[Rfam]
RNA sequence: GUUUAAGGAACUUUUGCUAGGAUCGCGAACAUCGUGCUCGCAACACAAAAGUCAGCACAUCCUGUGGA
Numbered sequence: 001g002u003u004u005a006a007g008g009a010a011c012u013u014u015u016g017c018u019a020g021g022a023u024c025g026c027g028a029a030c031a032u033c034g035u036g037c038u039c040g041c042a043a044c045a046c047a048a049a050a051g052u053c054a055g056c057a058c059a060u061c062c063u064g065u066g067g068a
Stems, first nucleotide, its partner, number of pairs: 011051006026040003030036001056066003
A member of the RNA family "Bacillaceae-1 RNA" from Alteribacillus bidgolensis, 68 nucleotides long.
It is annotated as a small RNA.